[Rfam]
RNA sequence: GCGGAGGGACGGAUGGCCGCUUGGGCCGCAAGGCCCGGGAGGAAAGUCCGGACUCCACAAGGUAAGGGUGCCGGGUAACGCCCGGCGGGGGCAACCCCAGGGAAAGCGCCACAGAAAACAAACCGCCCCUGUCCGCAGGGGUAAGGGUGAAACGGUGGGGUAAGAGCCCACCGCGGGACUGGUAACAGGACCGGCACGGCAAGCCCCACCCGGAGCAAUGCCGAAUAGGGGCCUCGCGCGGGCAUGAUCCGGUUCGCCGGAUAUCACCGCAGGGUCUGCCUUGACCCAGAGGCCCGGGUUGGCAGCUAUAGGCGGAUCGGUAACGGUUCGUUCAGAGGAAUGGUCAUCUCGGGCGGGGCAACCCGCCUAUGACAGAAUCCGGCUUACAGGCCCUCCGCGCAU
Numbered sequence: 001g002c003g004g005a006g007g008g009a010c011g012g013a014u015g016g017c018c019g020c021u022u023g024g025g026c027c028g029c030a031a032g033g034c035c036c037g038g039g040a041g042g043a044a045a046g047u048c049c050g051g052a053c054u055c056c057a058c059a060a061g062g063u064a065a066g067g068g069u070g071c072c073g074g075g076u077a078a079c080g081c082c083c084g085g086c087g088g089g090g091g092c093a094a095c096c097c098c099a100g101g102g103a104a105a106g107c108g109c110c111a112c113a114g115a116a117a118a119c120a121a122a123c124c125g126c127c128c129c130u131g132u133c134c135g136c137a138g139g140g141g142u143a144a145g146g147g148u149g150a151a152a153c154g155g156u157g158g159g160g161u162a163a164g165a166g167c168c169c170a171c172c173g174c175g176g177g178a179c180u181g182g183u184a185a186c187a188g189g190a191c192c193g194g195c196a197c198g199g200c201a202a203g204c205c206c207c208a209c210c211c212g213g214a215g216c217a218a219u220g221c222c223g224a225a226u227a228g229g230g231g232c233c234u235c236g237c238g239c240g241g242g243c244a245u246g247a248u249c250c251g252g253u254u255c256g257c258c259g260g261a262u263a264u265c266a267c268c269g270c271a272g273g274g275u276c277u278g279c280c281u282u283g284a285c286c287c288a289g290a291g292g293c294c295c296g297g298g299u300u301g302g303c304a305g306c307u308a309u310a311g312g313c314g315g316a317u318c319g320g321u322a323a324c325g326g327u328u329c330g331u332u333c334a335g336a337g338g339a340a341u342g343g344u345c346a347u348c349u350c351g352g353g354c355g356g357g358g359c360a361a362c363c364c365g366c367c368u369a370u371g372a373c374a375g376a377a378u379c380c381g382g383c384u385u386a387c388a389g390g391c392c393c394u395c396c397g398c399g400c401a402u
Stems, first nucleotide, its partner, number of pairs: 001398008010389001011387001012348007020039008044385003048382005053215004061281002066211005071085005086100001087098004101206002106204002108200003123146002125142007154172006173195001174193003179188003219304004229295006272287005312331008
The family of this 402-nucleotide RNA from Thalassovita gelatinovora is "Bacterial RNase P class A". Lineage of the source: Bacteria > Pseudomonadota > Alphaproteobacteria > Roseobacteraceae > Thalassovita. The family's RNA type in Rfam is ribozyme. Rfam describes the family as follows. Ribonuclease P (RNase P) is a ubiquitous endoribonuclease, found in archaea, bacteria and eukarya as well as chloroplasts and mitochondria.